This 93-nucleotide RNA from Nyctereutes procyonoides belongs to the Rfam family "mir-8799 microRNA precursor family". The family is grouped with related families in Rfam's "mir-8791 microRNA precursor clan".
RNA sequence: CGGGGGAAUGCAGGAUCCUGGGCCGUGUCUCCCAGUGCCCUGGGAUCUGGGGCUUGUGCUGCUGGAGUCGCGCUCCCGGGGCCGUGGCUCCCG
Numbered sequence: 001c002g003g004g005g006g007a008a009u010g011c012a013g014g015a016u017c018c019u020g021g022g023c024c025g026u027g028u029c030u031c032c033c034a035g036u037g038c039c040c041u042g043g044g045a046u047c048u049g050g051g052g053c054u055u056g057u058g059c060u061g062c063u064g065g066a067g068u069c070g071c072g073c074u075c076c077c078g079g080g081g082c083c084g085u086g087g088c089u090c091c092c093g
Stems, first nucleotide, its partner, number of pairs: 001093006010085002013083002017079002020076003024072004028066002032064001033061006042054001044053001046051001

Rfam links the family to the GO terms RISC complex and miRNA-mediated post-transcriptional gene silencing.